[Rfam]
RNA sequence: CUAUAAUCCGCACUUCCAUUGGGGAGUAGCCGCUCCGCCGUCACCGUCCCGCGCAAUGCGGGAGCCGGAACGCGGAGGCGUACGUCAACAGACUUGACCGCUUGCGGUUAUGGCGUGCGCAGCUUCCGGGACCAGGGCCUGCCAUCCGGCGCGGCCCGUGCCCAGGGCCUGGCGAGACCGAUGACGUCGCUUUUCCGGACAGGGCCGGGGAAG
Numbered sequence: 001c002u003a004u005a006a007u008c009c010g011c012a013c014u015u016c017c018a019u020u021g022g023g024g025a026g027u028a029g030c031c032g033c034u035c036c037g038c039c040g041u042c043a044c045c046g047u048c049c050c051g052c053g054c055a056a057u058g059c060g061g062g063a064g065c066c067g068g069a070a071c072g073c074g075g076a077g078g079c080g081u082a083c084g085u086c087a088a089c090a091g092a093c094u095u096g097a098c099c100g101c102u103u104g105c106g107g108u109u110a111u112g113g114c115g116u117g118c119g120c121a122g123c124u125u126c127c128g129g130g131a132c133c134a135g136g137g138c139c140u141g142c143c144a145u146c147c148g149g150c151g152c153g154g155c156c157c158g159u160g161c162c163c164a165g166g167g168c169c170u171g172g173c174g175a176g177a178c179c180g181a182u183g184a185c186g187u188c189g190c191u192u193u194u195c196c197g198g199a200c201a202g203g204g205c206c207g208g209g210g211a212a213g
Stems, first nucleotide, its partner, number of pairs: 034076005078120010095110005123213005
Manganese Mn2+ riboswitch aptamer (yybP-ykoY): a 213-nucleotide sequence from Cupriavidus sp. USMAA2-4. Lineage of the source: Bacteria > Pseudomonadota > Betaproteobacteria > Burkholderiales > Cupriavidus. From the family's description: This RNA was originally discovered in E. coli during a large scale screen and was named SraF. The family was later found to exist upstream of related families of protein genes in many bacteria, including the the yybP and ykoK genes in B. subtilis. The specific functions of these proteins are unknown, but this structured RNA element may be involved in their genetic regulation as a riboswitch. It scores 58 bits against the family's covariance model.